[Rfam]
RNA sequence: UGGCACAUCCAUUCACAACGGAUCGUCCGGCACGUACCUGCCGGUGAAGGAGAAGUAC
Numbered sequence: 001u002g003g004c005a006c007a008u009c010c011a012u013u014c015a016c017a018a019c020g021g022a023u024c025g026u027c028c029g030g031c032a033c034g035u036a037c038c039u040g041c042c043g044g045u046g047a048a049g050g051a052g053a054a055g056u057a058c
Stems, first nucleotide, its partner, number of pairs: 009050002012048004027044006